[Rfam]
RNA: Group II catalytic intron D1-D4-3
Organism: Bacillus sp. FJAT-26390
RNA sequence: UUCAUCGCGAGGUGGAAUCUGAAGGAAGCUGGCAGCAAAUCUCCGGUCUGAGGAACACGAACUUCAUAUAAGGCUAGCGAACGUUGGAUGAGGUUGCUAAACAAACCAAAGUCCUUACUGCCGAAGGCGUGCGAGAGUAAAUGAAGCAGAUAGAUGGAGAGGAAGAUAGCGUU
Numbered sequence: 001u002u003c004a005u006c007g008c009g010a011g012g013u014g015g016a017a018u019c020u021g022a023a024g025g026a027a028g029c030u031g032g033c034a035g036c037a038a039a040u041c042u043c044c045g046g047u048c049u050g051a052g053g054a055a056c057a058c059g060a061a062c063u064u065c066a067u068a069u070a071a072g073g074c075u076a077g078c079g080a081a082c083g084u085u086g087g088a089u090g091a092g093g094u095u096g097c098u099a100a101a102c103a104a105a106c107c108a109a110a111g112u113c114c115u116u117a118c119u120g121c122c123g124a125a126g127g128c129g130u131g132c133g134a135g136a137g138u139a140a141a142u143g144a145a146g147c148a149g150a151u152a153g154a155u156g157g158a159g160a161g162g163a164a165g166a167u168a169g170c171g172u173u
Stems, first nucleotide, its partner, number of pairs: 001016006028173001030171002036165001040160006046151005062146006073138003078133002081130003086114004092107004